[Rfam]
RNA sequence: UAGAUAAACGCUGAUAAGGGAAGUCGGCAAACUAGAUCUGUACCUUCGGUAGAAGGAUUGGCUCUAUGGGUUGAGUCUUUACUGCUGUUUGUUUGAUUGCUGCGUAAGUGGUAGUUGAGCAUUGAGUGGUAGGACAGUGAACAACCAAAGUAGAACUGGCACGGAGAAGGGGAAUCUGACUGUGUAAUAACAACAAAGCAGUGCGAUAGCCGUAAACGGUUUUGACGCAGUGUGAUUUCUGCCCAGUGCCCUGAAUGUCAGCGUGAAGAGAUUCACUUAAGCACGGGUAAACGGCGGAGUAACUACGACUCUCUUAAGGUAGCCAAAUGCCUCGUAAUUUAAUUGAUGACGCGCAUGAAUGGAUUAACGAGAUUCCCACUGUCCCUAUCAGCACUCUAGCGAAACCACAGACAGGGUAACGGGCCCGUGA
Numbered sequence: 001u002a003g004a005u006a007a008a009c010g011c012u013g014a015u016a017a018g019g020g021a022a023g024u025c026g027g028c029a030a031a032c033u034a035g036a037u038c039u040g041u042a043c044c045u046u047c048g049g050u051a052g053a054a055g056g057a058u059u060g061g062c063u064c065u066a067u068g069g070g071u072u073g074a075g076u077c078u079u080u081a082c083u084g085c086u087g088u089u090u091g092u093u094u095g096a097u098u099g100c101u102g103c104g105u106a107a108g109u110g111g112u113a114g115u116u117g118a119g120c121a122u123u124g125a126g127u128g129g130u131a132g133g134a135c136a137g138u139g140a141a142c143a144a145c146c147a148a149a150g151u152a153g154a155a156c157u158g159g160c161a162c163g164g165a166g167a168a169g170g171g172g173a174a175u176c177u178g179a180c181u182g183u184g185u186a187a188u189a190a191c192a193a194c195a196a197a198g199c200a201g202u203g204c205g206a207u208a209g210c211c212g213u214a215a216a217c218g219g220u221u222u223u224g225a226c227g228c229a230g231u232g233u234g235a236u237u238u239c240u241g242c243c244c245a246g247u248g249c250c251c252u253g254a255a256u257g258u259c260a261g262c263g264u265g266a267a268g269a270g271a272u273u274c275a276c277u278u279a280a281g282c283a284c285g286g287g288u289a290a291a292c293g294g295c296g297g298a299g300u301a302a303c304u305a306c307g308a309c310u311c312u313c314u315u316a317a318g319g320u321a322g323c324c325a326a327a328u329g330c331c332u333c334g335u336a337a338u339u340u341a342a343u344u345g346a347u348g349a350c351g352c353g354c355a356u357g358a359a360u361g362g363a364u365u366a367a368c369g370a371g372a373u374u375c376c377c378a379c380u381g382u383c384c385c386u387a388u389c390a391g392c393a394c395u396c397u398a399g400c401g402a403a404a405c406c407a408c409a410g411a412c413a414g415g416g417u418a419a420c421g422g423g424c425c426c427g428u429g430a
Base pairs, nucleotide, nucleotide: 001398002397003396004395010392011391012390013389014388015387016386018384019383020382035059036058037057038056039055044049060157061156063154064153065152066151067150069146070145071144072143073142075135076134077133078132079131081130082129083128084127092119093118094117095116096115097114098113099112100111101110102109103108158162170377171376172375173374174373175372176371177369178368181195182194183193198233199232200231202229203228204227205226209220210219211218212217237363238362239361241295242294243293246292247291248288249287250286251285253284256283257282258281263276264275265274266273267272296312297311298310299309300308314318334350335349337347338346339345411428412427414425415424
RNA: Eukaryotic large subunit ribosomal RNA, nucleotides 1885 to 2314
Organism: Octopus sinensis